[Rfam]
RNA sequence: GAUAGUCUUCAGGGCAAGGUGAGAAGGUAAAACCUUCAAUUCCUGACCGGCGGUAAAAAGCGAAAGCUUCAAGCCCGCGAGCCGAAAGGUAGAUCCGGUGUGAUUCCGGGGCCGACAGUAAAGUCUGGAUGGAAGAAGACGAAG
Dot-bracket structure: ..(.((((((......(((......................))).[[((((((...................[[))))..(((....)))...(((((.......)))))]])).(((....]]))).......)))))).)..